RNA sequence: ACCUUAUUAAGAGUGGUGGAGGGACUGGCCCUGUGAAACCCGGCAACCGCUGUUCCUAGGAACAGAAUGGUGCUAAUUCCUUAAGCAAGCAAAUGCUUGUUUGAAGAUAAGGC
Numbered sequence: 001a002c003c004u005u006a007u008u009a010a011g012a013g014u015g016g017u018g019g020a021g022g023g024a025c026u027g028g029c030c031c032u033g034u035g036a037a038a039c040c041c042g043g044c045a046a047c048c049g050c051u052g053u054u055c056c057u058a059g060g061a062a063c064a065g066a067a068u069g070g071u072g073c074u075a076a077u078u079c080c081u082u083a084a085g086c087a088a089g090c091a092a093a094u095g096c097u098u099g100u101u102u103g104a105a106g107a108u109a110a111g112g113c
Stems, first nucleotide, its partner, number of pairs: 002112007013041001015040003021031003027080002042074004047070002050065003078105001083102006
This 113-nucleotide RNA sequence from Bacillus safensis belongs to the Rfam family "SAM riboswitch aptamer (S box leader)". The source organism's lineage runs through Bacteria, Bacillota, Caryophanales, Bacillaceae and Bacillus. A search with the family's covariance model found it, with a score of 84 bits.